[Rfam]
RNA sequence: UUAUGCCUGUGUAUGGAUGGUGUUCAGCACCAAGGACAGACCGUUAUGCCUGUGUAUGGAUGGUGUUCAGCACCAGGGACAGACCGUUAUGCCU
Numbered sequence: 001u002u003a004u005g006c007c008u009g010u011g012u013a014u015g016g017a018u019g020g021u022g023u024u025c026a027g028c029a030c031c032a033a034g035g036a037c038a039g040a041c042c043g044u045u046a047u048g049c050c051u052g053u054g055u056a057u058g059g060a061u062g063g064u065g066u067u068c069a070g071c072a073c074c075a076g077g078g079a080c081a082g083a084c085c086g087u088u089a090u091g092c093c094u
Base pairs, nucleotide, nucleotide: 005084007082008081009080010079018075019074020073021072022071023070024069026067027066028065029064030063031062032061034055036053037052038051039050041048

A member of the RNA family "mir-2060 microRNA precursor family" from Branchiostoma floridae, 94 nucleotides long. Rfam links the family to the GO terms miRNA-mediated post-transcriptional gene silencing and RISC complex. The family has 7 seed sequences and 3,696 matches in Rfam 15.1. The organism belongs to Branchiostoma, within Eukaryota. A search with the family's covariance model found it, with a score of 78 bits.